Rfam assigns this 171-nucleotide sequence from Methylomusa anaerophila to the family "M-box riboswitch aptamer (ykoK leader)".
From the family's description: M-box riboswitch, also know as ykoK leader is described as a metaloregulatory RNA that sense divalent metals and function as a genetic control element of genes related to divalent metal transport in bacteria. It was first reported upstream of the B.subtilis ykoK gene and genes with related functions in other bacteria.
It scores 161 bits against the family's covariance model.
Taxonomically the source falls in Methylomusa (Bacteria, Bacillati, Negativicutes, Sporomusaceae).
[Rfam]
RNA sequence: UCAUUUCUCUGUUAGGUGAGGCUCCUGCAUAAACAAAAGCCACUGCCCGGAAACGUCGAGAGACGCCAAUGGGUAGAACAGGUAUUACCGGAUUAAGGUUUUACUUAACGUGGCUGAGGAUGGGUUUGCUCUACGUUAUGCAGUGCCAAAGCUCAACGAGUGGGGAGGCUU
Numbered sequence: 001u002c003a004u005u006u007c008u009c010u011g012u013u014a015g016g017u018g019a020g021g022c023u024c025c026u027g028c029a030u031a032a033a034c035a036a037a038a039g040c041c042a043c044u045g046c047c048c049g050g051a052a053a054c055g056u057c058g059a060g061a062g063a064c065g066c067c068a069a070u071g072g073g074u075a076g077a078a079c080a081g082g083u084a085u086u087a088c089c090g091g092a093u094u095a096a097g098g099u100u101u102u103a104c105u106u107a108a109c110g111u112g113g114c115u116g117a118g119g120a121u122g123g124g125u126u127u128g129c130u131c132u133a134c135g136u137u138a139u140g141c142a143g144u145g146c147c148a149a150a151g152c153u154c155a156a157c158g159a160g161u162g163g164g165g166a167g168g169c170u171u
Stems, first nucleotide, its partner, number of pairs: 005167006011157002013096001015153003020147003025143008039114005045074005054065004081105004087099003116131003